[Rfam]
RNA sequence: GGCGAUAAAUGGCCAUCGCAAUAAACCCAUCGGACCCGGGGGCGGUACCCGGCGCCUCCACCAAAACGCGGGCGGGCCUCGCGUUUCGGCGGGGGCGAAAUAGGAUCGACGAGGGUGUAAAGGAUGCGCUUUCGCCCGGCAUGGUUCCGCCGUUAUCGGGCCGAACUUAUAGUUGCCAACGACAACUAUGCUCCGGUCGCCGCGGCUGCGUAA
Numbered sequence: 001g002g003c004g005a006u007a008a009a010u011g012g013c014c015a016u017c018g019c020a021a022u023a024a025a026c027c028c029a030u031c032g033g034a035c036c037c038g039g040g041g042g043c044g045g046u047a048c049c050c051g052g053c054g055c056c057u058c059c060a061c062c063a064a065a066a067c068g069c070g071g072g073c074g075g076g077c078c079u080c081g082c083g084u085u086u087c088g089g090c091g092g093g094g095g096c097g098a099a100a101u102a103g104g105a106u107c108g109a110c111g112a113g114g115g116u117g118u119a120a121a122g123g124a125u126g127c128g129c130u131u132u133c134g135c136c137c138g139g140c141a142u143g144g145u146u147c148c149g150c151c152g153u154u155a156u157c158g159g160g161c162c163g164a165a166c167u168u169a170u171a172g173u174u175g176c177c178a179a180c181g182a183c184a185a186c187u188a189u190g191c192u193c194c195g196g197u198c199g200c201c202g203c204g205g206c207u208g209c210g211u212a213a
Base pairs, nucleotide, nucleotide: 001136002135003134004133005132014126015125016124017123026115027114028113030112031111032110036052037051038050039049040048053097054096055095056094057093058092059091137152138151139150140149

About this RNA
Shown here is a 213-nucleotide RNA sequence from Chelatococcus composti, a member of the family "permuted transfer-messenger RNA". The match comes from Rfam's covariance-model search (154 bits). Pairs were carried over by alignment from the consensus structure, which is taken from published work. The source organism's lineage runs through Bacteria, Pseudomonadati, Alphaproteobacteria, Chelatococcaceae and Chelatococcus. Its family is annotated with RNA catabolic process in the Gene Ontology.